[Rfam]
RNA sequence: AUCACCUGGAAUCUUAUAAAAAUGCAGAUUCUGAUUUAGCAAGUCUGGGGUGGUGCUUGGGAUUCUGCAUUUCUAACAAGGUCACAGGUGAUGCCAA
Numbered sequence: 001a002u003c004a005c006c007u008g009g010a011a012u013c014u015u016a017u018a019a020a021a022a023u024g025c026a027g028a029u030u031c032u033g034a035u036u037u038a039g040c041a042a043g044u045c046u047g048g049g050g051u052g053g054u055g056c057u058u059g060g061g062a063u064u065c066u067g068c069a070u071u072u073c074u075a076a077c078a079a080g081g082u083c084a085c086a087g088g089u090g091a092u093g094c095c096a097a
Base pairs, nucleotide, nucleotide: 003090004089005088009083010082013080014079015078017076019074020072021071022070024068025067026066027065028064030062031061032060

mir-544 microRNA precursor family: a 97-nucleotide sequence from Prolemur simus. The base pairs follow the family's consensus structure, which was predicted with RNAalifold. The match comes from Rfam's covariance-model search (67 bits). Taxonomically the source falls in Prolemur (Eukaryota, Vertebrata, Gnathostomata, Euarchontoglires). Its family is annotated with miRNA-mediated post-transcriptional gene silencing and RISC complex in the Gene Ontology.